[Rfam]
RNA sequence: GUCAACUACCCACCACUUACCUAACGGUUGAAGUGGGGGCUUGUAAGAGCCUUUAGUUGUCUAGCCUAAGUUUUUGAUAACUACGUUGGUUCGGUGAUCACACCCUCGGAUGAUGCCCUAGUCCGUUGCUCUGUGCAGGCUCUGUAAUAGUUCUGAAUGGGUAGGAACGGUCAACCUGAUUGGACGGUUUUACCGCGAAGCCUUACCAACAUUGGCGAAGGGUAACCAAC
Numbered sequence: 001g002u003c004a005a006c007u008a009c010c011c012a013c014c015a016c017u018u019a020c021c022u023a024a025c026g027g028u029u030g031a032a033g034u035g036g037g038g039g040c041u042u043g044u045a046a047g048a049g050c051c052u053u054u055a056g057u058u059g060u061c062u063a064g065c066c067u068a069a070g071u072u073u074u075u076g077a078u079a080a081c082u083a084c085g086u087u088g089g090u091u092c093g094g095u096g097a098u099c100a101c102a103c104c105c106u107c108g109g110a111u112g113a114u115g116c117c118c119u120a121g122u123c124c125g126u127u128g129c130u131c132u133g134u135g136c137a138g139g140c141u142c143u144g145u146a147a148u149a150g151u152u153c154u155g156a157a158u159g160g161g162u163a164g165g166a167a168c169g170g171u172c173a174a175c176c177u178g179a180u181u182g183g184a185c186g187g188u189u190u191u192a193c194c195g196c197g198a199a200g201c202c203u204u205a206c207c208a209a210c211a212u213u214g215g216c217g218a219a220g221g222g223u224a225a226c227c228a229a230c
Stems, first nucleotide, its partner, number of pairs: 001061001003059006010038002013035001020027002039050004064216003068212001069082004085210006093202003100134002104128001107125005112226001114224006136178004143173002147171002150168005156162001
This 230-nucleotide RNA from Bacillus aerolatus belongs to the Rfam family "HNH endonuclease-associated RNA and ORF (HEARO) RNA". The family's RNA type in Rfam is non-coding RNA gene. It scores 107 bits against the family's covariance model. Taxonomically the source falls in Bacillus (Bacteria, Bacillati, Caryophanales, Bacillaceae).